[Rfam]
A member of the RNA family "Plastid-ccsA-ndhD-2 3UTR RNA" from Carya illinoinensis, 49 nucleotides long. About the family: Plastid ccsA-ndhD-2 is a non-coding RNA (ncRNA) recognised in plastids. It was found in the three prime untranslated region (3UTR) of ccsA and ndhD genes, its 3UTR location suggests a role in transcript maturation. On this family, see Zandueta-Criado and Bock, Nucleic Acids Res 2004: "Surprising features of plastid ndhD transcripts: addition of non-encoded nucleotides and polysome association of mRNAs with an unedited start codon". Taxonomically the source falls in Carya (Eukaryota, Tracheophyta, fabids, Fagales). The match comes from Rfam's covariance-model search (60 bits). Rfam 15.1 lists 875 matches to the family in 517 species.

RNA sequence: UUUGUAAGAACCUUUUGAAUCAAACUAGUGAUUCAAAAGGUUCUUACAA
Numbered sequence: 001u002u003u004g005u006a007a008g009a010a011c012c013u014u015u016u017g018a019a020u021c022a023a024a025c026u027a028g029u030g031a032u033u034c035a036a037a038a039g040g041u042u043c044u045u046a047c048a049a
Stems, first nucleotide, its partner, number of pairs: 004047019
Dot-bracket structure: ...(((((((((((((((((((......)))))))))))))))))))..